[Rfam]
RNA: CRISPR RNA direct repeat element
RNA sequence: AUUAUCCGGGGCAUUUCGCCCCGGCCUCAUUGAAGC
Numbered sequence: 001a002u003u004a005u006c007c008g009g010g011g012c013a014u015u016u017c018g019c020c021c022c023g024g025c026c027u028c029a030u031u032g033a034a035g036c
Stems, first nucleotide, its partner, number of pairs: 006024007